[Rfam]
RNA sequence: AGGCUAUGAUGAUUCUCUGAGGAAGUCAUGCACCACUCUGAUUUUCUGUGAAUGAAAAAUUUCUCAUACCCAAUAUAUCUGAGCCU
Numbered sequence: 001a002g003g004c005u006a007u008g009a010u011g012a013u014u015c016u017c018u019g020a021g022g023a024a025g026u027c028a029u030g031c032a033c034c035a036c037u038c039u040g041a042u043u044u045u046c047u048g049u050g051a052a053u054g055a056a057a058a059a060u061u062u063c064u065c066a067u068a069c070c071c072a073a074u075a076u077a078u079c080u081g082a083g084c085c086u
Stems, first nucleotide, its partner, number of pairs: 001086004

The record is an 86-nucleotide sequence from Rosa chinensis, which matches "Small nucleolar RNA Z221/R21b" in Rfam. The family's consensus secondary structure was predicted with WAR. The family has 12 seed sequences and 588 matches in Rfam 15.1. The literature on the family includes a 2003 paper in Nucleic Acids Res by Chen et al., "The high diversity of snoRNAs in plants: identification and comparative study of 120 snoRNA genes from Oryza sativa". It scores 68 bits against the family's covariance model.